[Rfam]
RNA sequence: CUAAUACUGUUGCUAAUAUGCAACUCUGUGGGAUAAAAGUGGAAUUGCACUUUAGCAAUGGUGAUGG
Numbered sequence: 001c002u003a004a005u006a007c008u009g010u011u012g013c014u015a016a017u018a019u020g021c022a023a024c025u026c027u028g029u030g031g032g033a034u035a036a037a038a039g040u041g042g043a044a045u046u047g048c049a050c051u052u053u054a055g056c057a058a059u060g061g062u063g064a065u066g067g
Base pairs, nucleotide, nucleotide: 005063006062007061008060009059010058011057012056013055014054015053016052019049020048021047022046023045025043026042027041028040
Rfam assigns this 67-nucleotide RNA from Sakesphorus luctuosus to the family "mir-367 microRNA precursor family". The organism belongs to Sakesphorus, within Eukaryota.